[Rfam]
RNA sequence: CCGACGGCACUGCCGAGUCCGUGCAGUCAGGAGGCACGGAGCCGGGGAACCAUCGACCUUCCACGCGAAGGUCCGGGGUGAGUCGGCGCGUCGCGCGCCGUAGGGCGACUUCCCUGCCCGAAUCCGUCAGCUAACCCGGUAGGCGCGAGCGGAAGA
Numbered sequence: 001c002c003g004a005c006g007g008c009a010c011u012g013c014c015g016a017g018u019c020c021g022u023g024c025a026g027u028c029a030g031g032a033g034g035c036a037c038g039g040a041g042c043c044g045g046g047g048a049a050c051c052a053u054c055g056a057c058c059u060u061c062c063a064c065g066c067g068a069a070g071g072u073c074c075g076g077g078g079u080g081a082g083u084c085g086g087c088g089c090g091u092c093g094c095g096c097g098c099c100g101u102a103g104g105g106c107g108a109c110u111u112c113c114c115u116g117c118c119c120g121a122a123u124c125c126g127u128c129a130g131c132u133a134a135c136c137c138g139g140u141a142g143g144c145g146c147g148a149g150c151g152g153a154a155g156a
Stems, first nucleotide, its partner, number of pairs: 011145004018040007041140006051075001076125003084100004103119004
RNA: c-di-AMP riboswitch aptamer (ydaO/yuaA leader)
Organism: Microbispora rosea